RNA sequence: UACUACCAAAACCUAUAUCCACCUCCACGUGGUGACCGCUGGGAGCUCUUUCUGAAUGAAAAGCUGCAGACGGUGAAGG
Numbered sequence: 001u002a003c004u005a006c007c008a009a010a011a012c013c014u015a016u017a018u019c020c021a022c023c024u025c026c027a028c029g030u031g032g033u034g035a036c037c038g039c040u041g042g043g044a045g046c047u048c049u050u051u052c053u054g055a056a057u058g059a060a061a062a063g064c065u066g067c068a069g070a071c072g073g074u075g076a077a078g079g
Base pairs, nucleotide, nucleotide: 012079013078014077016075017074018073019072021033022032023031044065045064046063047062049060050059052058

drz-agam-1 ribozyme: a 79-nucleotide RNA from Hermetia illucens. Rfam 15.1 lists 10,507 matches to the family in 53 species. The base pairs follow the family's consensus structure, which is taken from published work. For this family Rfam cites "Widespread occurrence of self-cleaving ribozymes" (Webb et al., Science, 2009). The source organism's lineage runs through Eukaryota, Panarthropoda, Mandibulata, Altocrustacea and Hermetia.